[Rfam]
RNA sequence: ACAUGGGAAAGGAGGUGGUUCGGCAGAUGUAUGCAGACCGGACGCGUGAGGUGACUGCGGGCUAGCGGCCCGUCGUCGCACUCGGUGCGGUGCCGGACCAGCGCGUGAGAGCAGCGCGCAGCCGGCCCAAUCCCAAGCAGUCACCCGACCCGCGGGCCGCCGGUACGUCCGGCCGGCUUCCUCCUCAGGGAGGAACCAUGGCCCGCGGGUCGUCUGCG
Numbered sequence: 001a002c003a004u005g006g007g008a009a010a011g012g013a014g015g016u017g018g019u020u021c022g023g024c025a026g027a028u029g030u031a032u033g034c035a036g037a038c039c040g041g042a043c044g045c046g047u048g049a050g051g052u053g054a055c056u057g058c059g060g061g062c063u064a065g066c067g068g069c070c071c072g073u074c075g076u077c078g079c080a081c082u083c084g085g086u087g088c089g090g091u092g093c094c095g096g097a098c099c100a101g102c103g104c105g106u107g108a109g110a111g112c113a114g115c116g117c118g119c120a121g122c123c124g125g126c127c128c129a130a131u132c133c134c135a136a137g138c139a140g141u142c143a144c145c146c147g148a149c150c151c152g153c154g155g156g157c158c159g160c161c162g163g164u165a166c167g168u169c170c171g172g173c174c175g176g177c178u179u180c181c182u183c184c185u186c187a188g189g190g191a192g193g194a195a196c197c198a199u200g201g202c203c204c205g206c207g208g209g210u211c212g213u214c215u216g217c218g
Base pairs, nucleotide, nucleotide: 015058016057017056018055019054060127061126062125063124065122066121068119069118071116073114146212147211148210149209150208151207152206153205154204155203156202157201158200159177160176161175162174163173164172
The family of this 218-nucleotide RNA sequence from Streptomyces tsukubensis is "Actinobacteria sRNA Ms_IGR-5". The pairing is the family consensus, mapped onto this sequence. By type it is a small RNA. The source organism's lineage runs through Bacteria, Bacillati, Kitasatosporales, Streptomycetaceae and Streptomyces. A reference for the family is Li et al. (2013), "Identification of small RNAs in Mycobacterium smegmatis using heterologous Hfq", RNA.